[Rfam]
RNA sequence: UUCCAUCGCUAAGUCAAGGCUCCUUUCUUGCUUUUUUUGCAACGUCUCCAUGAAAGACGCCUGUUACAGCUAUGGUACAUUAAGCCGCGCUCGCCACCUUGGUGGUUUUCGGCAUGGCGUCCGUCUUGGAAGCCUUGUCACCAGAGCGCAUGGCGUGUUUCGUUUGAGUUGAGGUCUGCUUGGGCCGAUUUUCUUCUGGCCCCUCGAGUCAUAGCACACUUCUUAGUAAUGUCUCACACAUAC
Numbered sequence: 001u002u003c004c005a006u007c008g009c010u011a012a013g014u015c016a017a018g019g020c021u022c023c024u025u026u027c028u029u030g031c032u033u034u035u036u037u038u039g040c041a042a043c044g045u046c047u048c049c050a051u052g053a054a055a056g057a058c059g060c061c062u063g064u065u066a067c068a069g070c071u072a073u074g075g076u077a078c079a080u081u082a083a084g085c086c087g088c089g090c091u092c093g094c095c096a097c098c099u100u101g102g103u104g105g106u107u108u109u110c111g112g113c114a115u116g117g118c119g120u121c122c123g124u125c126u127u128g129g130a131a132g133c134c135u136u137g138u139c140a141c142c143a144g145a146g147c148g149c150a151u152g153g154c155g156u157g158u159u160u161c162g163u164u165u166g167a168g169u170u171g172a173g174g175u176c177u178g179c180u181u182g183g184g185c186c187g188a189u190u191u192u193c194u195u196c197u198g199g200c201c202c203c204u205c206g207a208g209u210c211a212u213a214g215c216a217c218a219c220u221u222c223u224u225a226g227u228a229a230u231g232u233c234u235c236a237c238a239c240a241u242a243c
Stems, first nucleotide, its partner, number of pairs: 003075004017062004023056004028042004085153003089149002093106005111139003117133002120130004155237003161231003171222004177216004183201005